A member of the RNA family "mir-9229 microRNA precursor family" from Myotis davidii, 75 nucleotides long. The family has 7 seed sequences and 27,225 matches in Rfam 15.1.
RNA sequence: AGACACCCCUAAAGGGCAGGACUUGCUUCAGUGGGGCUUUGGUGCUCACUGAGUCUGCUUCUUGAGUGUGUCCCU
Numbered sequence: 001a002g003a004c005a006c007c008c009c010u011a012a013a014g015g016g017c018a019g020g021a022c023u024u025g026c027u028u029c030a031g032u033g034g035g036g037c038u039u040u041g042g043u044g045c046u047c048a049c050u051g052a053g054u055c056u057g058c059u060u061c062u063u064g065a066g067u068g069u070g071u072c073c074c075u
Base pairs, nucleotide, nucleotide: 002072003071004070005069006068008066010064011063014060015059016058017057018056020055021054022053028052029051030050031049032048033047034046035045036043037042
Pairs were carried over by alignment from the consensus structure, which was predicted with RNAalifold.